[Rfam]
RNA: Small Cajal body specific RNA 11
RNA sequence: AUAUCCUGGCUUGUGCAUUGCCUGCUCCCCUGUGCUCAGCUCUAACGGGGGAGUCAGUGGCAGGAUGAACAGCAAUCUCACGCUCUUGUAGGAGGGCUGUCCUAAGGGUAGGGCUGGCUCUUAAAGGCAGGAGAGGACACU
Numbered sequence: 001a002u003a004u005c006c007u008g009g010c011u012u013g014u015g016c017a018u019u020g021c022c023u024g025c026u027c028c029c030c031u032g033u034g035c036u037c038a039g040c041u042c043u044a045a046c047g048g049g050g051g052a053g054u055c056a057g058u059g060g061c062a063g064g065a066u067g068a069a070c071a072g073c074a075a076u077c078u079c080a081c082g083c084u085c086u087u088g089u090a091g092g093a094g095g096g097c098u099g100u101c102c103u104a105a106g107g108g109u110a111g112g113g114c115u116g117g118c119u120c121u122u123a124a125a126g127g128c129a130g131g132a133g134a135g136g137a138c139a140c141u
Stems, first nucleotide, its partner, number of pairs: 002067007010060002024054003028050006081135001083133003087127001089125001092122007099114006
Dot-bracket structure: .(((((((.((............(((.((((((...........)))))).)))....))))))))).............(.(((.(.(..(((((((((((((....)))))).)))))))..).)...))).)......